The record is a 90-nucleotide sequence from Rubrivivax sp. A210, which matches "SAH (S-adenosyl-L-homocysteine) riboswitch aptamer" in Rfam. Lineage of the source: Bacteria > Pseudomonadati > Pseudomonadota > Burkholderiales > Rubrivivax.

[Rfam]
RNA sequence: CUUCCCGAGGAGCGUUGCAACGGCAGCCAUGCCGCCAGGCUCGGGGCGUUCGAGGCCAGCCGCCUCCCACCGCAACGGCGCUCACCCACU
Numbered sequence: 001c002u003u004c005c006c007g008a009g010g011a012g013c014g015u016u017g018c019a020a021c022g023g024c025a026g027c028c029a030u031g032c033c034g035c036c037a038g039g040c041u042c043g044g045g046g047c048g049u050u051c052g053a054g055g056c057c058a059g060c061c062g063c064c065u066c067c068c069a070c071c072g073c074a075a076c077g078g079c080g081c082u083c084a085c086c087c088a089c090u
Stems, first nucleotide, its partner, number of pairs: 003046006021034005
It scores 65 bits against the family's covariance model.
Pairs were carried over by alignment from the consensus structure, which is taken from published work.